The family of this 103-nucleotide sequence from Legionella drancourtii is "traJ-II RNA".
Rfam classes the family as a cis-regulatory element.
Rfam 15.1 lists 174 matches to the family in 172 species.
The source organism's lineage runs through Bacteria, Pseudomonadota, Gammaproteobacteria, Legionella and Legionella drancourtii.
Pairs were carried over by alignment from the consensus structure, which is taken from published work.
The match comes from Rfam's covariance-model search (73 bits).
RNA sequence: GGGCAAGAUAGGUGAAGUUAGCUAACCAGCAAGCUGGCUACCAAACUUCACUUAGCCUUAUUCGCACCUUCGGUGCUCAACGGGAAUCCAGUGAUUUGAGGUC
Numbered sequence: 001g002g003g004c005a006a007g008a009u010a011g012g013u014g015a016a017g018u019u020a021g022c023u024a025a026c027c028a029g030c031a032a033g034c035u036g037g038c039u040a041c042c043a044a045a046c047u048u049c050a051c052u053u054a055g056c057c058u059u060a061u062u063c064g065c066a067c068c069u070u071c072g073g074u075g076c077u078c079a080a081c082g083g084g085a086a087u088c089c090a091g092u093g094a095u096u097u098g099a100g101g102u103c
Base pairs, nucleotide, nucleotide: 003092004091007088008087009086012051013050014049015048016047017046019044021042024039026037027036028035029034056083057082064076065075066074067073068072